[Rfam]
RNA: Purine riboswitch aptamer
Organism: Planomicrobium sp. YIM 101495
RNA sequence: AUUGAAAUUAAAUAACGUUGUCGUAUAACGUCGGGGAUAUGGCCCGAAAGUUUCUACCGAGUCACCGUAAAAGACUCGACUACGAUUUAGUCUGCUUUUGGG
Numbered sequence: 001a002u003u004g005a006a007a008u009u010a011a012a013u014a015a016c017g018u019u020g021u022c023g024u025a026u027a028a029c030g031u032c033g034g035g036g037a038u039a040u041g042g043c044c045c046g047a048a049a050g051u052u053u054c055u056a057c058c059g060a061g062u063c064a065c066c067g068u069a070a071a072a073g074a075c076u077c078g079a080c081u082a083c084g085a086u087u088u089a090g091u092c093u094g095c096u097u098u099u100g101g102g
Stems, first nucleotide, its partner, number of pairs: 020086006031047005058078006